Notes: The record is a 66-nucleotide RNA sequence, which matches "Pistol ribozyme" in Rfam.
RNA sequence: AGUCGUUAGGGCGACUAUAAACAGACAUUAAGCCCUAAGCGUCCCCUACUAGCUAGGGGGGUUGUA
Number, nucleotide and partner (000 for none) at each position: 001a016002g015003u014004c013005g000006u038007u037008a036009g035010g034011g033012c000013g004014a003015c002016u001017a000018u000019a000020a000021a000022c000023a000024g000025a065026c064027a063028u000029u000030a000031a000032g040033c011034c010035c009036u008037a007038a006039g000040c032041g000042u060043c059044c058045c057046c056047u055048a054049c000050u000051a000052g000053c000054u048055a047056g046057g045058g044059g043060g042061g000062u000063u027064g026065u025066a000
The sequence is in the family's curated seed alignment.